A member of the RNA family "DUF3800-XI RNA" from Ruminococcus sp. CAG:382, 47 nucleotides long. The base pairs follow the family's consensus structure, which is taken from published work. About the family: Actinobacteria, Firmicutes, Proteobacteria, Spirochaetes (1 example). The source organism's lineage runs through Bacteria, Bacillota, Clostridia, Oscillospiraceae and Ruminococcus. It is annotated as a small RNA.
[Rfam]
RNA sequence: CGGGCUGAUCGCAAGAUCCGGGUCCACCUUCGGCGGGGAUGUUCCCC
Numbered sequence: 001c002g003g004g005c006u007g008a009u010c011g012c013a014a015g016a017u018c019c020g021g022g023u024c025c026a027c028c029u030u031c032g033g034c035g036g037g038g039a040u041g042u043u044c045c046c047c
Stems, first nucleotide, its partner, number of pairs: 002025005007018004